[Rfam]
RNA: c-di-AMP riboswitch aptamer (ydaO/yuaA leader)
RNA sequence: AAGACCUUUUUGCUGAAUCUUUUGAGCGGGGGAACCAAUUUUGAUAAAGCUACUUUAUCUUGGGGUGAAUUUUAGCGAAUGAAGCUAAAAAGGGAUACUCUCAUUCCCUAAUCCGACAGCUAACUCCGUAAGCCGUGAAGAGAGAAGGG
Numbered sequence: 001a002a003g004a005c006c007u008u009u010u011u012g013c014u015g016a017a018u019c020u021u022u023u024g025a026g027c028g029g030g031g032g033a034a035c036c037a038a039u040u041u042u043g044a045u046a047a048a049g050c051u052a053c054u055u056u057a058u059c060u061u062g063g064g065g066u067g068a069a070u071u072u073u074a075g076c077g078a079a080u081g082a083a084g085c086u087a088a089a090a091a092g093g094g095a096u097a098c099u100c101u102c103a104u105u106c107c108c109u110a111a112u113c114c115g116a117c118a119g120c121u122a123a124c125u126c127c128g129u130a131a132g133c134c135g136u137g138a139a140g141a142g143a144g145a146a147g148g149g
Stems, first nucleotide, its partner, number of pairs: 012133003018025002026129006036062002063114003071089004092108004
Dot-bracket structure: ...........(((...((....))((((((....((.......................))(((.....((((...........))))..((((.........))))...))).........)))))).)))................